[Rfam]
RNA sequence: AUAUAUUAUAAAGCGCCUGGACUUAAAUCAGAUCGGAGAAAGUAGUGAUUUAAGUUGACGAGGACAGGGUUAAUCGAUUAGUCGGCGGGUGCCCUGCGGUGUAGCUCACCACCGAUAAAGGCUUUACAAACCCUACAAGUGAUUGUAGGAACAAAAAAGUUGGGUGAGAUAG
Numbered sequence: 001a002u003a004u005a006u007u008a009u010a011a012a013g014c015g016c017c018u019g020g021a022c023u024u025a026a027a028u029c030a031g032a033u034c035g036g037a038g039a040a041a042g043u044a045g046u047g048a049u050u051u052a053a054g055u056u057g058a059c060g061a062g063g064a065c066a067g068g069g070u071u072a073a074u075c076g077a078u079u080a081g082u083c084g085g086c087g088g089g090u091g092c093c094c095u096g097c098g099g100u101g102u103a104g105c106u107c108a109c110c111a112c113c114g115a116u117a118a119a120g121g122c123u124u125u126a127c128a129a130a131c132c133c134u135a136c137a138a139g140u141g142a143u144u145g146u147a148g149g150a151a152c153a154a155a156a157a158a159g160u161u162g163g164g165u166g167a168g169a170u171a172g
Stems, first nucleotide, its partner, number of pairs: 020056008029047001065096005074085004097114005120161006132149007
RNA: glmS glucosamine-6-phosphate activated ribozyme aptamer
Organism: Paramaledivibacter caminithermalis